The family of this 127-nucleotide RNA sequence from Steinernema hermaphroditum is "Nematode sRNA ceN72-3_ceN74-2". The base pairs follow the family's consensus structure, which was predicted with WAR.
RNA sequence: UGGAGCGGUCCGGAGGCCGCGGGCUAUCAUAGUAUGCAAGUUGCGUAUAUAAUAUUGGUUAAAAUGAAAAAAUAUAAAAGCCUAAAAACAUUGAGCCUUAGCCCGUGGUCGACGCCUUGACCGUUCC
Numbered sequence: 001u002g003g004a005g006c007g008g009u010c011c012g013g014a015g016g017c018c019g020c021g022g023g024c025u026a027u028c029a030u031a032g033u034a035u036g037c038a039a040g041u042u043g044c045g046u047a048u049a050u051a052a053u054a055u056u057g058g059u060u061a062a063a064a065u066g067a068a069a070a071a072a073u074a075u076a077a078a079a080g081c082c083u084a085a086a087a088a089c090a091u092u093g094a095g096c097c098u099u100a101g102c103c104c105g106u107g108g109u110c111g112a113c114g115c116c117u118u119g120a121c122c123g124u125u126c127c
Stems, first nucleotide, its partner, number of pairs: 002127003006123005012113001015110009033049005053066004077092002080089001